[Rfam]
RNA sequence: GGAGAGCUGUCCGAGUGGUCGAAGGAGCACGAUUGGAAAUCGUGUAGGCGUGAAUAGCGCCUCAAGGGUUCGAAUCCCUUGCUCUCCG
Numbered sequence: 001g002g003a004g005a006g007c008u009g010u011c012c013g014a015g016u017g018g019u020c021g022a023a024g025g026a027g028c029a030c031g032a033u034u035g036g037a038a039a040u041c042g043u044g045u046a047g048g049c050g051u052g053a054a055u056a057g058c059g060c061c062u063c064a065a066g067g068g069u070u071c072g073a074a075u076c077c078c079u080u081g082c083u084c085u086c087c088g
Stems, first nucleotide, its partner, number of pairs: 001087007010026003028044005064080005

Rfam assigns this 88-nucleotide RNA sequence from Bacillus sp. to the family "tRNA". Taxonomically the source falls in Bacillus (Bacteria, Bacillati, Bacillota, Caryophanales). Its Rfam clan is "tRNA clan". The sequence is in the family's curated seed alignment. The family's RNA type in Rfam is transfer RNA.